[Rfam]
RNA sequence: GAAUAUUUUGGAAGAACCGCUUUUUACUUUAUGUAGAUUAUCGAAGCCUCACAUACAAAGUAACCGCUUGGGUUUACUUAACUAUGGCUUUGGGUGAAAGUCCCCGGACACAAGGGCAGAAAGUGCCGCCUAUAAUCUAGGUAUUGACCCCACAGCAUAACGUUCAGGUAUUUAUGGCAUUUUGAAAUACAACUUGCAGGAUUGAGAGGGUGGAAACCACUUUACUGAGCAAAGAUGCCAUUUGGAGGAGCUCUGGUUUUCAUUCUCGAAGAUCUUGUUUUUCUUAUGCUAUGGAUUUCUGAAUGUUUUGUGGAGUUUGUUCGUCAUAGCACAGUUAUGCGGUUUGGCCGUGUUCUUUUGGAAUGCGGCUACCUCAACGGGGCUCACUCUCCAAAUAUU
Numbered sequence: 001g002a003a004u005a006u007u008u009u010g011g012a013a014g015a016a017c018c019g020c021u022u023u024u025u026a027c028u029u030u031a032u033g034u035a036g037a038u039u040a041u042c043g044a045a046g047c048c049u050c051a052c053a054u055a056c057a058a059a060g061u062a063a064c065c066g067c068u069u070g071g072g073u074u075u076a077c078u079u080a081a082c083u084a085u086g087g088c089u090u091u092g093g094g095u096g097a098a099a100g101u102c103c104c105c106g107g108a109c110a111c112a113a114g115g116g117c118a119g120a121a122a123g124u125g126c127c128g129c130c131u132a133u134a135a136u137c138u139a140g141g142u143a144u145u146g147a148c149c150c151c152a153c154a155g156c157a158u159a160a161c162g163u164u165c166a167g168g169u170a171u172u173u174a175u176g177g178c179a180u181u182u183u184g185a186a187a188u189a190c191a192a193c194u195u196g197c198a199g200g201a202u203u204g205a206g207a208g209g210g211u212g213g214a215a216a217c218c219a220c221u222u223u224a225c226u227g228a229g230c231a232a233a234g235a236u237g238c239c240a241u242u243u244g245g246a247g248g249a250g251c252u253c254u255g256g257u258u259u260u261c262a263u264u265c266u267c268g269a270a271g272a273u274c275u276u277g278u279u280u281u282u283c284u285u286a287u288g289c290u291a292u293g294g295a296u297u298u299c300u301g302a303a304u305g306u307u308u309u310g311u312g313g314a315g316u317u318u319g320u321u322c323g324u325c326a327u328a329g330c331a332c333a334g335u336u337a338u339g340c341g342g343u344u345u346g347g348c349c350g351u352g353u354u355c356u357u358u359u360g361g362a363a364u365g366c367g368g369c370u371a372c373c374u375c376a377a378c379g380g381g382g383c384u385c386a387c388u389c390u391c392c393a394a395a396u397a398u399u
Base pairs, nucleotide, nucleotide: 002399003398004397005396006395008394009393010392011391012390015344016343017342018341019340020339041093042092043091044090045089046088047087058079059078060077061076062075063074099384100383102382103381104380105379115127116126117125118124215258216257217256218255227253228252229251230250238245239244346370347369348368349367350366351365352364353363354362
Source information:
This 399-nucleotide sequence from Coemansia sp. RSA 990 belongs to the Rfam family "RNase MRP". For this family Rfam cites "Identification and analysis of ribonuclease P and MRP RNA in a broad range of eukaryotes" (Piccinelli et al., Nucleic Acids Res, 2005). Lineage of the source: Eukaryota > Opisthokonta > Fungi > Kickxellomycotina > Coemansia. It scores 100 bits against the family's covariance model. From the family's description: RNase MRP is an enzymatically active ribonucleoprotein with two distinct roles in eukaryotes. In mitochondria it plays a direct role in the initiation of mitochondrial DNA replication. In the nucleus it is involved in precursor rRNA processing, where it cleaves the internal transcribed spacer 1 between 18S and 5.8S rRNAs. Despite distinct functions, RNase MRP has been shown to be evolutionarily related to RNase P. Like eukaryotic RNase P, RNase MRP is not catalytically active without associated protein subunits.